This 235-nucleotide RNA sequence from Desulfosporosinus metallidurans belongs to the Rfam family "Group II catalytic intron D1-D4-6". It scores 133 bits against the family's covariance model. Group II introns are found in rRNA, tRNA and mRNA of organelles in fungi, plants and protists, and also in mRNA in bacteria. The organism belongs to Desulfosporosinus, within Bacteria.

[Rfam]
RNA sequence: AAAAUCCUAUCAGGUAAUACCUAACCAGUAGCCUGUACCUAGUUCCUUGGAGCCGAAAUGGUAACAUUAGGUUUAAGCGUAGGGCGGGGAGCAAACGAGCCGAAACGAAAGUGAAGCUAUUGAGCCACGAAAUUAUUAUCUAAAUGAAGAGGCCGAUACUGUCUUUUCGGUAGCAGGCAAAAUCGUGCAAAUCGUAAUGGUGAGAGAUGCAUGACUCUUCCGGGGUCCGAGGGCU
Dot-bracket structure: ..........((((...(((.[.[[..))).))))..(((...(((((((((((.(.(((....)))).)))))...)).))))..)))...............................((.(((.((................(((((((((..((((........))))...)))....(((((((..((......]].]))..))))))))))))))).)))).)......